[Rfam]
RNA sequence: CCCGCCACCGCGCAAGUCUGCGUUCAGCUGUGGCUUGUGCAUUCCAGUGGUGAGCUGAGAGGAGCCCCCCGUUCUAGGAAACAGUGUUACUCUCUCCGUGGGUAACUCUGUGCCGCGAACUGGGAACACGG
Numbered sequence: 001c002c003c004g005c006c007a008c009c010g011c012g013c014a015a016g017u018c019u020g021c022g023u024u025c026a027g028c029u030g031u032g033g034c035u036u037g038u039g040c041a042u043u044c045c046a047g048u049g050g051u052g053a054g055c056u057g058a059g060a061g062g063a064g065c066c067c068c069c070c071g072u073u074c075u076a077g078g079a080a081a082c083a084g085u086g087u088u089a090c091u092c093u094c095u096c097c098g099u100g101g102g103u104a105a106c107u108c109u110g111u112g113c114c115g116c117g118a119a120c121u122g123g124g125a126a127c128a129c130g131g
Stems, first nucleotide, its partner, number of pairs: 005050004010045001018037001020035001021032002066124003071120004077114002082110003086106002090102003
Shown here is a 131-nucleotide RNA sequence from Varanus komodoensis, a member of the family "Small nucleolar RNA SNORA65". About the family: U65 belongs to the H/ACA class of snoRNAs which are thought to guide the sites of modification of uridines to pseudouridines. The organism belongs to Varanus, within Eukaryota. The family's RNA type in Rfam is H/ACA-box small nucleolar RNA. A search with the family's covariance model found it, with a score of 75 bits. Its family is annotated with nucleolus and RNA processing in the Gene Ontology.